The family of this 54-nucleotide sequence from Salmo salar is "UnaL2 LINE 3' element". Rfam's curators write: The eel long interspersed element (LINE) UnaL2 and its partner short interspersed element (SINE) share a conserved 3' tail containing a stem-loop that is critical for their retrotransposition. Presumably, the first step of retrotransposition is the recognition of their 3' tails by UnaL2-encoded reverse transcriptase. The solution structure of a 17-nucleotide RNA derived from the 3' tail of UnaL2 was determined by NMR. For this family Rfam cites "Solution structure of an RNA stem-loop derived from the 3' conserved region of eel LINE UnaL2" (Baba et al., RNA, 2004). Taxonomically the source falls in Salmo (Eukaryota, Opisthokonta, Neopterygii, Salmoniformes). The family's RNA type in Rfam is cis-regulatory element.
RNA sequence: UGCAUUCACUACUGUAGGUCACUCUGGAUAAGAGUGUCUGCUAAAUGUAAGGAC
Number, nucleotide and partner (000 for none) at each position: 001u000002g000003c000004a000005u000006u000007c000008a000009c000010u000011a000012c000013u043014g041015u040016a039017g000018g000019u000020c036021a035022c034023u033024c032025u031026g000027g000028a000029u000030a000031a025032g024033a023034g022035u021036g020037u000038c000039u016040g015041c014042u000043a013044a000045a000046u000047g000048u000049a000050a000051g000052g000053a000054c000